[Rfam]
RNA sequence: AUCGGUACAUGAGUACCGAUAUACCCAACUCGUGCGGUGAGCCAUUCCGACGGUCAGCCGCAUAAGUCCUGUAUGUGCCUGAGCCAUUCCGACGGCAGGGCGCCAAAAUCAGAAUACAAGGAG
Numbered sequence: 001a002u003c004g005g006u007a008c009a010u011g012a013g014u015a016c017c018g019a020u021a022u023a024c025c026c027a028a029c030u031c032g033u034g035c036g037g038u039g040a041g042c043c044a045u046u047c048c049g050a051c052g053g054u055c056a057g058c059c060g061c062a063u064a065a066g067u068c069c070u071g072u073a074u075g076u077g078c079c080u081g082a083g084c085c086a087u088u089c090c091g092a093c094g095g096c097a098g099g100g101c102g103c104c105a106a107a108a109u110c111a112g113a114a115u116a117c118a119a120g121g122a123g
Stems, first nucleotide, its partner, number of pairs: 001020008032063007041054003075103004080098001
This 123-nucleotide sequence belongs to the Rfam family "FTHFS RNA". The family's RNA type in Rfam is cis-regulatory element.